[Rfam]
RNA sequence: AAAAAAUGCUAGAGGUGCCGUUAUGGCUGAGAGGAGAAAUCUAACUCUAUGAACCUGAUUUGGUUAGUACCAACGUAGGGAAGCAUAUAUGUUUACUU
Numbered sequence: 001a002a003a004a005a006a007u008g009c010u011a012g013a014g015g016u017g018c019c020g021u022u023a024u025g026g027c028u029g030a031g032a033g034g035a036g037a038a039a040u041c042u043a044a045c046u047c048u049a050u051g052a053a054c055c056u057g058a059u060u061u062g063g064u065u066a067g068u069a070c071c072a073a074c075g076u077a078g079g080g081a082a083g084c085a086u087a088u089a090u091g092u093u094u095a096c097u098u
Stems, first nucleotide, its partner, number of pairs: 006086005011048004017027004034041002054079004060073004
The record is a 98-nucleotide RNA from Clostridiaceae bacterium 14S0207, which matches "TPP riboswitch aptamer (THI element)" in Rfam. Lineage of the source: Bacteria > Bacillati > Clostridia > Eubacteriales > Clostridiaceae.